RNA sequence: UGGUGCCCACUGUGUGGGGCCUGUAUACAGGGGCUUUAUCUUGAGGAAGAAGACUCAGGUGGCUGGCUUUGUAUACAGAAAUUCCUUUGAAUGUCGAGGGAGCCUGCCGUGGCUGAAACGAAGGGGAGUGAUAGAAUCUGAAUAUGGGACAAGCAUUAAGCUAACAUGAGGUCUUUGUGAAACAAUUAAAAGAGGCAUUAAAGGUUCGAGGAGUAAAGGUAAAAACCAACGAUCUGUUUACAUUUUUUGAUUUUGUUAAGGAUCUUUGUCCUU
Numbered sequence: 001u002g003g004u005g006c007c008c009a010c011u012g013u014g015u016g017g018g019g020c021c022u023g024u025a026u027a028c029a030g031g032g033g034c035u036u037u038a039u040c041u042u043g044a045g046g047a048a049g050a051a052g053a054c055u056c057a058g059g060u061g062g063c064u065g066g067c068u069u070u071g072u073a074u075a076c077a078g079a080a081a082u083u084c085c086u087u088u089g090a091a092u093g094u095c096g097a098g099g100g101a102g103c104c105u106g107c108c109g110u111g112g113c114u115g116a117a118a119c120g121a122a123g124g125g126g127a128g129u130g131a132u133a134g135a136a137u138c139u140g141a142a143u144a145u146g147g148g149a150c151a152a153g154c155a156u157u158a159a160g161c162u163a164a165c166a167u168g169a170g171g172u173c174u175u176u177g178u179g180a181a182a183c184a185a186u187u188a189a190a191a192g193a194g195g196c197a198u199u200a201a202a203g204g205u206u207c208g209a210g211g212a213g214u215a216a217a218g219g220u221a222a223a224a225a226c227c228a229a230c231g232a233u234c235u236g237u238u239u240a241c242a243u244u245u246u247u248u249g250a251u252u253u254u255g256u257u258a259a260g261g262a263u264c265u266u267u268g269u270c271c272u273u
Base pairs, nucleotide, nucleotide: 006033007032008031012028013027014026039053040052041051042050083126084125085124086122087121092117095111096110098108099107132152134150137148138147139146140145157200158199159198160196161195162194207249208248209247210246211245212244213243214242217235218234219233220232258273259272260271261270262269263268
Dot-bracket structure: .....(((...(((...........)))..))).....((((.......)))).............................(((((....(..((.((.......)).)).....)...)).))).....(.(..((((....)))).).)....((((((...............................))).)))......((((((((..((((...........))))......))))))))........((((((....))))))
The record is a 273-nucleotide sequence from Rattus norvegicus, which matches "Mason-Pfizer monkey virus packaging signal" in Rfam. The family's RNA type in Rfam is cis-regulatory element. A reference for the family is Mustafa et al. (2004), "Mutational analysis of the predicted secondary RNA structure of the Mason-Pfizer monkey virus packaging signal", Virus Res. Pairs were carried over by alignment from the consensus structure, which was predicted with PFOLD. Rfam's curators put it in the seed alignment. This family represents a group of sequences that are related to the Mason-Pfizer monkey virus (MPMV) packaging signal. The packaging signal is located in the 5' UTR and is required for specific RNA encapsidation. Lineage of the source: Eukaryota > Craniata > Eutheria > Euarchontoglires > Rattus.